RNA sequence: AUGCGAAGGUCCCAGCAGAGAGGCAAGGACUCUGAAUUGAGGUCUCCCUAACAACAGUUCAAUCAAAUCUUCGCAAACUAAUUUGCCGAAUCGUAGGAUGACCAAGAUUUUCCAUUUUUGUGGCAUCCGGAACCCUCGGCUAUAUACGA
Numbered sequence: 001a002u003g004c005g006a007a008g009g010u011c012c013c014a015g016c017a018g019a020g021a022g023g024c025a026a027g028g029a030c031u032c033u034g035a036a037u038u039g040a041g042g043u044c045u046c047c048c049u050a051a052c053a054a055c056a057g058u059u060c061a062a063u064c065a066a067a068u069c070u071u072c073g074c075a076a077a078c079u080a081a082u083u084u085g086c087c088g089a090a091u092c093g094u095a096g097g098a099u100g101a102c103c104a105a106g107a108u109u110u111u112c113c114a115u116u117u118u119u120g121u122g123g124c125a126u127c128c129g130g131a132a133c134c135c136u137c138g139g140c141u142a143u144a145u146a147c148g149a
Stems, first nucleotide, its partner, number of pairs: 003074007011020001013018001027046001030041003085140005097127002100124001102122001103120005
Description:
Small nucleolar RNA snoR145: a 149-nucleotide RNA sequence from Jatropha curcas. Lineage of the source: Eukaryota > Tracheophyta > fabids > Jatropheae > Jatropha. Rfam links the family to the GO terms nucleolus and RNA processing. The family's RNA type in Rfam is H/ACA-box small nucleolar RNA. The base pairs follow the family's consensus structure, which was predicted with mfold. A reference for the family is Chen and Wu (2009), "Mining small RNA sequencing data: a new approach to identify small nucleolar RNAs in Arabidopsis", Nucleic Acids Res.